RNA: Mammalian CPEB3 ribozyme
Organism: Alligator mississippiensis
RNA sequence: GGUUGCAAGUCUGAGGCCACAGCAGCAGUUCUCACAGCAUAGCCCUGUUAAAUUCCAAAGAAUCUGUAAAUUCUGCU
Numbered sequence: 001g002g003u004u005g006c007a008a009g010u011c012u013g014a015g016g017c018c019a020c021a022g023c024a025g026c027a028g029u030u031c032u033c034a035c036a037g038c039a040u041a042g043c044c045c046u047g048u049u050a051a052a053u054u055c056c057a058a059a060g061a062a063u064c065u066g067u068a069a070a071u072u073c074u075g076c077u
Stems, first nucleotide, its partner, number of pairs: 013045001015044003021077005027071001028040002049066002052063004